[Rfam]
RNA sequence: AGCCUAUUUUGCGAAAAGGCGCUCGACCGCCGACCGAAGUGAUGGCGAUAUUUGUUGAUCAACACAAGGAGCAGUACGGGGUCGAGCCGAUCUGCAGGCAAAUUCAGAUUGCCCCA
Numbered sequence: 001a002g003c004c005u006a007u008u009u010u011g012c013g014a015a016a017a018g019g020c021g022c023u024c025g026a027c028c029g030c031c032g033a034c035c036g037a038a039g040u041g042a043u044g045g046c047g048a049u050a051u052u053u054g055u056u057g058a059u060c061a062a063c064a065c066a067a068g069g070a071g072c073a074g075u076a077c078g079g080g081g082u083c084g085a086g087c088c089g090a091u092c093u094g095c096a097g098g099c100a101a102a103u104u105c106a107g108a109u110u111g112c113c114c115c116a
Stems, first nucleotide, its partner, number of pairs: 018031004078115004088111002091108004096103001